[Rfam]
This 49-nucleotide RNA sequence from Erysipelothrix sp. HDW6C belongs to the Rfam family "uup RNA". The family's RNA type in Rfam is cis-regulatory element. Taxonomically the source falls in Erysipelothrix (Bacteria, Bacillota, Erysipelotrichia, Erysipelotrichaceae). A search with the family's covariance model found it, with a score of 37 bits.
RNA sequence: CAAGACGUCGCUCUGUACAACUGAUAUCGAUGAAGCGUUGUAUAAGAGG
Numbered sequence: 001c002a003a004g005a006c007g008u009c010g011c012u013c014u015g016u017a018c019a020a021c022u023g024a025u026a027u028c029g030a031u032g033a034a035g036c037g038u039u040g041u042a043u044a045a046g047a048g049g
Stems, first nucleotide, its partner, number of pairs: 011048004015043001017041003